[Rfam]
RNA: MIR2118 microRNA precursor family
RNA sequence: GCUCGGAAGAGUAAGAACGAAGGGCCUUAGAGUAGUGGGAAUGGGAACGUGAAGGAAAGCCUAACUUCCUCGGUUUGACCUCUCGUGUUGGAAGUGAUAAUUUCGUUUGGUGUUCCCGAUGCCUCCCAUUCCUAUUGUUCUAAAGCACUCCUUCCUCUUCACUUUUUGG
Numbered sequence: 001g002c003u004c005g006g007a008a009g010a011g012u013a014a015g016a017a018c019g020a021a022g023g024g025c026c027u028u029a030g031a032g033u034a035g036u037g038g039g040a041a042u043g044g045g046a047a048c049g050u051g052a053a054g055g056a057a058a059g060c061c062u063a064a065c066u067u068c069c070u071c072g073g074u075u076u077g078a079c080c081u082c083u084c085g086u087g088u089u090g091g092a093a094g095u096g097a098u099a100a101u102u103u104c105g106u107u108u109g110g111u112g113u114u115c116c117c118g119a120u121g122c123c124u125c126c127c128a129u130u131c132c133u134a135u136u137g138u139u140c141u142a143a144a145g146c147a148c149u150c151c152u153u154c155c156u157c158u159u160c161a162c163u164u165u166u167u168g169g
Stems, first nucleotide, its partner, number of pairs: 009160003013156001015154003021149002025145001027143008036134011048121003054116004059111002